RNA sequence: UCAUUUAGAACUCGACCAAUCCGCAGCGCGAAGAACUGCGGUAGAUGCUCGCCCUGUCGGCAGCGAGCUUUGUGGCAGAUCCUCUGCCAGGCCUCCAAGAGGCCAACGGGACAAGUACAGUCAAC
Numbered sequence: 001u002c003a004u005u006u007a008g009a010a011c012u013c014g015a016c017c018a019a020u021c022c023g024c025a026g027c028g029c030g031a032a033g034a035a036c037u038g039c040g041g042u043a044g045a046u047g048c049u050c051g052c053c054c055u056g057u058c059g060g061c062a063g064c065g066a067g068c069u070u071u072g073u074g075g076c077a078g079a080u081c082c083u084c085u086g087c088c089a090g091g092c093c094u095c096c097a098a099g100a101g102g103c104c105a106a107c108g109g110g111a112c113a114a115g116u117a118c119a120g121u122c123a124a125c
Stems, first nucleotide, its partner, number of pairs: 021041006027033001047068006074088006090104006
RNA: rmf RNA